[Rfam]
RNA sequence: UUGCUGUGACGACUUUCUUAGGACACCUUUGGAUUCAACGUGAAAAGAAACUUGUAUUCUGAGCAAU
Number, nucleotide and partner (000 for none) at each position: 001u066002u065003g064004c063005u000006g000007u000008g000009a000010c000011g000012a000013c000014u000015u000016u000017c000018u000019u000020a000021g000022g000023a000024c000025a000026c000027c000028u000029u000030u000031g000032g000033a000034u000035u000036c000037a000038a000039c000040g000041u000042g000043a000044a000045a000046a000047g000048a000049a000050a000051c000052u000053u000054g000055u000056a000057u000058u000059c000060u000061g000062a000063g004064c003065a002066a001067u000

The record is a 67-nucleotide sequence from Phasianus colchicus, which matches "Small nucleolar RNA SNORD58" in Rfam. Rfam classes the family as a C/D-box small nucleolar RNA. The base pairs follow the family's consensus structure, which was predicted with PFOLD. Gene Ontology terms of the family: RNA processing and nucleolus. A search with the family's covariance model found it, with a score of 77 bits. The literature on the family includes a 1996 paper in Cell by Kiss-Laszlo et al., "Site-specific ribose methylation of preribosomal RNA: a novel function for small nucleolar RNAs".